Background
This 244-nucleotide RNA sequence from Streptomyces sp. VN1 belongs to the Rfam family "Streptomyces sRNA 4677". Pairs were carried over by alignment from the consensus structure. By type it is a small RNA. Located in the intergenic region between anti-sigma factor SCO4677 gene and a putative regulatory protein gene SCO4676. scr4677 expression requires the SCO4677 activity and scr4677 sRNA itself seem to affect the levels of the SCO4676-associated transcripts.
RNA sequence: GGUUUCGGUGCCGUCGGUGCCUACCCAUGCAAAGAACUCGGGAGAAAGAACCCCACCAAGCCCCACCCCUCCUCCCGAGGAGAGUCGUCACUCGGGUGGGUGAACAUCACCGGCUCAGCUGGAUUUCGGGCCCCUCAACUCCCUUACUCUCAGCGCAAACGACCGCAUCCGAAAAGACUUCGGCCCCCGCCGGGACUGCAAUCCCAGAGCGAGGGCCUGACCACCUAGGAAACGAGACUUCCCG
Numbered sequence: 001g002g003u004u005u006c007g008g009u010g011c012c013g014u015c016g017g018u019g020c021c022u023a024c025c026c027a028u029g030c031a032a033a034g035a036a037c038u039c040g041g042g043a044g045a046a047a048g049a050a051c052c053c054c055a056c057c058a059a060g061c062c063c064c065a066c067c068c069c070u071c072c073u074c075c076c077g078a079g080g081a082g083a084g085u086c087g088u089c090a091c092u093c094g095g096g097u098g099g100g101u102g103a104a105c106a107u108c109a110c111c112g113g114c115u116c117a118g119c120u121g122g123a124u125u126u127c128g129g130g131c132c133c134c135u136c137a138a139c140u141c142c143c144u145u146a147c148u149c150u151c152a153g154c155g156c157a158a159a160c161g162a163c164c165g166c167a168u169c170c171g172a173a174a175a176g177a178c179u180u181c182g183g184c185c186c187c188c189g190c191c192g193g194g195a196c197u198g199c200a201a202u203c204c205c206a207g208a209g210c211g212a213g214g215g216c217c218u219g220a221c222c223a224c225c226u227a228g229g230a231a232a233c234g235a236g237a238c239u240u241c242c243c244g
Stems, first nucleotide, its partner, number of pairs: 007225004016075002019072001088103006118154005182217005188211003192205004228242004